[Rfam]
Shown here is a 67-nucleotide RNA sequence from Eptesicus fuscus, a member of the family "mir-9256 microRNA precursor family". Rfam links the family to the GO terms miRNA-mediated post-transcriptional gene silencing and RISC complex. The organism belongs to Eptesicus, within Eukaryota.
RNA sequence: AGAUACACUGAGUGGCCAGAUUAUUAUGCGUUCAGAGAUCAUAAUAAUCAGGCCACUCAGUGUAUAU
Numbered sequence: 001a002g003a004u005a006c007a008c009u010g011a012g013u014g015g016c017c018a019g020a021u022u023a024u025u026a027u028g029c030g031u032u033c034a035g036a037g038a039u040c041a042u043a044a045u046a047a048u049c050a051g052g053c054c055a056c057u058c059a060g061u062g063u064a065u066a067u
Stems, first nucleotide, its partner, number of pairs: 004064014019049010
Dot-bracket structure: ...((((((((((((((.((((((((((...........)))))))))).))))))))))))))...